Shown here is a 67-nucleotide RNA from Candidatus Defluviicoccus seviourii, a member of the family "Singlet oxygen resistance RNA X". The literature on the family includes a 2016 paper in RNA Biol by Peng et al., "Regulation of a polyamine transporter by the conserved 3' UTR-derived sRNA SorX confers resistance to singlet oxygen and organic hydroperoxides in Rhodobacter sphaeroides". The family has 8 seed sequences and 528 matches in Rfam 15.1. About the family: SorX (RSs2461)like SorY is a singlet oxygen induced sRNA that counteracts oxidative stress by targeting mRNA for a transporter in Rhodobacter. The source organism's lineage runs through Bacteria, Alphaproteobacteria, Rhodospirillales, Rhodospirillaceae and Defluviicoccus.
[Rfam]
RNA sequence: AGUCCUACGUCUCCCAGACGUGAAGCCUCCCUGUUGGACUUGCCGGGCCUUGUGCCCGGCAUUUUUU
Numbered sequence: 001a002g003u004c005c006u007a008c009g010u011c012u013c014c015c016a017g018a019c020g021u022g023a024a025g026c027c028u029c030c031c032u033g034u035u036g037g038a039c040u041u042g043c044c045g046g047g048c049c050u051u052g053u054g055c056c057c058g059g060c061a062u063u064u065u066u067u
Stems, first nucleotide, its partner, number of pairs: 002019003041061008